[Rfam]
RNA sequence: AUCCUUUCGCAGCGGCAUUUUCAUAGUCUAUGAGGUUUUACUGAGACGUGAUUAUUGCUGGUUGAAAACUUUACCCAAUACCCCCGGGAUGACUUGAAAUAUAGUCAGCUCUGGCAAUUUUGUCAGUCUCAUGGGAGA
Numbered sequence: 001a002u003c004c005u006u007u008c009g010c011a012g013c014g015g016c017a018u019u020u021u022c023a024u025a026g027u028c029u030a031u032g033a034g035g036u037u038u039u040a041c042u043g044a045g046a047c048g049u050g051a052u053u054a055u056u057g058c059u060g061g062u063u064g065a066a067a068a069c070u071u072u073a074c075c076c077a078a079u080a081c082c083c084c085c086g087g088g089a090u091g092a093c094u095u096g097a098a099a100u101a102u103a104g105u106c107a108g109c110u111c112u113g114g115c116a117a118u119u120u121u122g123u124c125a126g127u128c129u130c131a132u133g134g135g136a137g138a
Base pairs, nucleotide, nucleotide: 021051022050023049024048026047027046028045034042035041036040084114085113086112087110088109090107091106092105093104094103127138128137129136130135
Overview
U4 spliceosomal RNA: a 138-nucleotide RNA from Etheostoma spectabile. Rfam classes the family as a spliceosomal small nuclear RNA. From the family's description: U4 small nuclear RNA (U4 snRNA) is a component of the major U2-dependent spliceosome.